[Rfam]
RNA: Small nucleolar RNA SNORA51
Organism: Apteryx owenii
Nucleotides: 132
Stems, first nucleotide, its partner, number of pairs: 003061006020046003026040004072124005085110003089106001091104003
Number, partner (000 for none) and nucleotide at each position: 001000c002000u003061c004060c005059u006058c007057c008056c009000c010000a011000c012000g013000c014000u015000u016000a017000c018000c019000g020046c021045a022044g023000g024000c025000a026040g027039c028038c029037g030000c031000c032000c033000c034000c035000c036000c037029c038028g039027g040026c041000u042000g043000c044022c045021u046020g047000u048000a049000c050000a051000g052000a053000a054000c055000g056008g057007g058006g059005a060004g061003g062000c063000a064000g065000a066000g067000c068000a069000u070000c071000g072124c073123c074122u075121c076120g077000a078000u079000a080000c081000a082000c083000c084000c085110c086109g087108g088000c089106c090000u091104g092103g093102g094000a095000g096000a097000c098000g099000g100000u101000g102093c103092c104091c105000u106089g107000g108087c109086u110085g111000g112000a113000u114000u115000g116000u117000g118000a119000g120076c121075g122074g123073g124072g125000g126000g127000a128000c129000a130000c131000g132000g